Source information: The family of this 349-nucleotide RNA from Butyrivibrio fibrisolvens is "Bacterial RNase P class A". The match comes from Rfam's covariance-model search (314 bits).
RNA sequence: UGAGCAGACUAGAUGAUCGCGGCUGCAAUACCCGAAAGGGUGCAGGUGAGGAAAGUCCGGGCUUCAAAGGGCAGGAUACCGGAUAACGUCCGGCGGAGGUGACUCCCGGGAUAGUGCAACAGAGAUAUACCGCCAACUUUUGUUGGUAAGGGUGGAAAGGCAGUGUAAGAGACUACCGUGCGGGUGGUAACAUCCGUAGCCAUGUAAACCCUAUCCGAAGCAAGACCGAAUAGAAAGCUAUGGGCCGGCCCGGUCCGCUUUCAGGUGGGUCGCUUGAAGCGUCUGGCAACAGGCGCUCUAGAUAGAUGAUCAUCCUAGACAUAACCCGGCUUACAGGUCUGCUCUUCUA
Numbered sequence: 001u002g003a004g005c006a007g008a009c010u011a012g013a014u015g016a017u018c019g020c021g022g023c024u025g026c027a028a029u030a031c032c033c034g035a036a037a038g039g040g041u042g043c044a045g046g047u048g049a050g051g052a053a054a055g056u057c058c059g060g061g062c063u064u065c066a067a068a069g070g071g072c073a074g075g076a077u078a079c080c081g082g083a084u085a086a087c088g089u090c091c092g093g094c095g096g097a098g099g100u101g102a103c104u105c106c107c108g109g110g111a112u113a114g115u116g117c118a119a120c121a122g123a124g125a126u127a128u129a130c131c132g133c134c135a136a137c138u139u140u141u142g143u144u145g146g147u148a149a150g151g152g153u154g155g156a157a158a159g160g161c162a163g164u165g166u167a168a169g170a171g172a173c174u175a176c177c178g179u180g181c182g183g184g185u186g187g188u189a190a191c192a193u194c195c196g197u198a199g200c201c202a203u204g205u206a207a208a209c210c211c212u213a214u215c216c217g218a219a220g221c222a223a224g225a226c227c228g229a230a231u232a233g234a235a236a237g238c239u240a241u242g243g244g245c246c247g248g249c250c251c252g253g254u255c256c257g258c259u260u261u262c263a264g265g266u267g268g269g270u271c272g273c274u275u276g277a278a279g280c281g282u283c284u285g286g287c288a289a290c291a292g293g294c295g296c297u298c299u300a301g302a303u304a305g306a307u308g309a310u311c312a313u314c315c316u317a318g319a320c321a322u323a324a325c326c327c328g329g330c331u332u333a334c335a336g337g338u339c340u341g342c343u344c345u346u347c348u349a
Stems, first nucleotide, its partner, number of pairs: 002344009012314007020048002023045005053332003057329005062220004069251004074216005079093005094108001095106004109211002114209002116205003130151002132147006159177002162174003178200001179198008224271004233262006242256005278297008

Pairs were carried over by alignment from the consensus structure, which is taken from published work.